Overview: Aphthovirus internal ribosome entry site (IRES): a 457-nucleotide RNA sequence from Rabovirus aneyoci. The organism belongs to Rabovirus A, within Viruses. The base pairs follow the family's consensus structure, which is taken from published work. This family represents the internal ribosome entry site (IRES) of the the aphthoviruses. IRES elements allow cap and end-independent translation of mRNA in the host cell. The IRES achieves this by mediating the internal initiation of translation by recruiting a ribosomal 43S pre-initiation complex directly to the initiation codon and eliminates the requirement for eIF4F. Its family is annotated with ribosome binding in the Gene Ontology. A reference for the family is Fernandez-Miragall and Martinez-Salas (2003), "Structural organization of a viral IRES depends on the integrity of the GNRA motif", RNA.
[Rfam]
RNA sequence: UGUCAGCGGUGCUACUCACACCGUAACUCUUCUACCCUAUCCCCACGCUUGUGGAACUAGGAGGGGAUGAGUGAUUCAAGUAAGUACUGUCAGAAUGGUGAAAAUGAUCUGAUUCUGAAACGCUAUGGAUCCAUCGAAAGAUGGGGCUACACGCCUGCGGAACAACACAUGGUAACAUGUGCCCCAGGGGCCGAAAGCCACGGUGAUAGGAUCACCCGUGUAGUUUGAGAUCAUAUCAAUGUUCAUAGUCUAGUAAGAUGAUUUGAAAUCUAACUGAGCUGAUGGCUAACUGCUUGUCUUAUUGCGGCCUAAGGAUGUCCUGCAGGUACCUUUAGAUAACCUUAAGAGACUAUUGAUCUGAGCAGGAGCCAAAGUGGUCUUUCCCAGCUUUGGUUAAAAAACGUCUAAGCCGCGGCAGGGGGCGGGAGGCCCCCUUUCCUCCCAAAACUUAAUAUUG
Number, nucleotide and partner (000 for none) at each position: 001u005002g000003u000004c000005a001006g000007c000008g000009g000010u000011g000012c000013u000014a000015c000016u000017c000018a000019c000020a000021c000022c000023g077024u000025a075026a000027c000028u073029c000030u000031u000032c000033u000034a000035c065036c064037c063038u062039a000040u055041c054042c053043c000044c051045a000046c000047g000048c000049u000050u000051g044052u000053g042054g041055a040056a000057c000058u000059a000060g000061g000062a038063g037064g036065g035066g000067a000068u000069g000070a000071g000072u000073g028074a000075u025076u000077c023078a000079a294080g293081u292082a291083a000084g000085u288086a287087c000088u000089g283090u282091c281092a000093g000094a000095a000096u276097g275098g274099u273100g000101a000102a269103a000104a000105u000106g000107a000108u000109c000110u261111g000112a000113u000114u000115c000116u000117g000118a000119a000120a000121c000122g250123c000124u000125a000126u000127g000128g244129a243130u000131c000132c241133a240134u000135c143136g142137a000138a000139a000140g000141a000142u136143g135144g000145g000146g224147c223148u222149a221150c220151a219152c218153g217154c188155c187156u186157g185158c000159g183160g182161a000162a000163c000164a000165a000166c000167a180168c179169a178170u177171g176172g000173u000174a000175a000176c171177a170178u169179g168180u167181g000182c160183c159184c000185c157186a156187g155188g154189g199190g198191c197192c000193g000194a000195a000196a000197g191198c190199c189200a000201c000202g216203g215204u214205g213206a000207u000208a000209g000210g000211a000212u000213c205214a204215c203216c202217c153218g152219u151220g150221u149222a148223g147224u146225u239226u238227g237228a236229g000230a000231u000232c000233a000234u000235a000236u228237c227238a226239a225240u133241g132242u000243u129244c128245a000246u000247a000248g000249u000250c122251u000252a000253g000254u000255a000256a000257g000258a000259u000260g000261a110262u000263u000264u000265g000266a000267a000268a000269u102270c000271u000272a000273a099274c098275u097276g096277a000278g000279c000280u000281g091282a090283u089284g000285g000286c000287u086288a085289a000290c000291u082292g081293c080294u079295u000296g000297u000298c000299u000300u000301a000302u000303u000304g413305c412306g411307g410308c409309c000310u000311a000312a000313g000314g000315a000316u000317g000318u367319c366320c365321u364322g000323c360324a359325g358326g357327u356328a000329c000330c000331u000332u000333u352334a351335g350336a000337u000338a000339a000340c000341c000342u000343u000344a000345a000346g000347a000348g000349a000350c335351u334352a333353u000354u000355g000356a327357u326358c325359u324360g323361a000362g000363c000364a321365g320366g319367a318368g000369c393370c392371a391372a390373a389374g388375u386376g385377g000378u000379c000380u000381u000382u000383c000384c000385c376386a375387g000388c374389u373390u372391u371392g370393g369394u000395u000396a000397a000398a000399a000400a000401a000402c000403g000404u000405c000406u000407a000408a000409g308410c307411c306412g305413c304414g000415g000416c000417a435418g434419g433420g432421g431422g000423c000424g000425g000426g430427a000428g000429g000430c426431c421432c420433c419434c418435u417436u000437u000438c000439c000440u000441c000442c000443c000444a000445a000446a000447a000448c000449u000450u000451a000452a000453u000454a000455u000456u000457g000